[Rfam]
RNA sequence: CUGAUUAUUAUCACCAUUCUUCGGAGAAUGGUGGGUUAAUUUGCGUCUUGAUUUAGCUAAGCAACCCGCCCCAGGAGGCGGGUUUU
Numbered sequence: 001c002u003g004a005u006u007a008u009u010a011u012c013a014c015c016a017u018u019c020u021u022c023g024g025a026g027a028a029u030g031g032u033g034g035g036u037u038a039a040u041u042u043g044c045g046u047c048u049u050g051a052u053u054u055a056g057c058u059a060a061g062c063a064a065c066c067c068g069c070c071c072c073a074g075g076a077g078g079c080g081g082g083u084u085u086u
Stems, first nucleotide, its partner, number of pairs: 011034010063084008
RNA: Pseudomonas sRNA P9